[Rfam]
Nucleotides: 152
Base pairs, nucleotide, nucleotide: 002019003018004017005016006015007014028069029068030067031066032065033060034059035058036057037056039054040053041052042051043050044049083098084097086095087094088093099122100121102119107114108113126145127144128143129142130141131140
Number, partner (000 for none) and nucleotide at each position: 001000c002019c003018u004017g005016c006015g007014g008000u009000u010000c011000c012000g013000u014007c015006c016005g017004c018003a019002g020000u021000a022000g023000c024000c025000u026000a027000u028069c029068g030067g031066c032065a033060u034059c035058g036057g037056c038000g039054u040053a041052g042051c043050u044049g045000g046000c047000a048000a049044c050043g051042g052041c053040u054039g055000g056037g057036u058035c059034g060033a061000a062000a063000g064000c065032u066031g067030c068029c069028g070000a071000g072000a073000c074000a075000a076000g077000g078000g079000c080000c081000c082000u083098c084097u085000a086095u087094c088093u089000u090000u091000c092000g093088a094087g095086a096000g097084a098083g099122a100121g101000g102119g103000a104000a105000u106000c107114c108113c109000g110000u111000g112000a113108g114107g115000g116000c117000g118000u119102c120000g121100c122099u123000c124000a125000c126145a127144c128143u129142g130141c131140c132000a133000g134000c135000g136000u137000c138000a139000c140131g141130g142129c143128g144127g145126u146000g147000g148000g149000a150000g151000g152000g
Rfam assigns this 152-nucleotide RNA from Acidisarcina polymorpha to the family "Group II catalytic intron D1-D4-7".
Rfam describes the family as follows. Group II introns are found in rRNA, tRNA and mRNA of organelles in fungi, plants and protists, and also in mRNA in bacteria.
The literature on the family includes a 2001 paper in Trends Genet by Bonen and Vogel, "The ins and outs of group II introns".
Pairs were carried over by alignment from the consensus structure.
The organism belongs to Acidisarcina, within Bacteria.
The match comes from Rfam's covariance-model search (109 bits).